The family of this 123-nucleotide sequence from Lederbergia galactosidilytica is "Bacillaceae-1 RNA". The organism belongs to Lederbergia, within Bacteria.

RNA sequence: UUUCGUAGAACAUCGGCUAAAAUCGCCACAUCCUGUGGCAGGCUCAAAAUGCACCCUCCUGGUGCUUCGCCUGCACUAGUACUUCCUGUACGUCGCAACGCCGAUGGACCCGCAUCCUGCGAG
Numbered sequence: 001u002u003u004c005g006u007a008g009a010a011c012a013u014c015g016g017c018u019a020a021a022a023u024c025g026c027c028a029c030a031u032c033c034u035g036u037g038g039c040a041g042g043c044u045c046a047a048a049a050u051g052c053a054c055c056c057u058c059c060u061g062g063u064g065c066u067u068c069g070c071c072u073g074c075a076c077u078a079g080u081a082c083u084u085c086c087u088g089u090a091c092g093u094c095g096c097a098a099c100g101c102c103g104a105u106g107g108a109c110c111c112g113c114a115u116c117c118u119g120c121g122a123g
Stems, first nucleotide, its partner, number of pairs: 011106007025096002028093002109123001111121003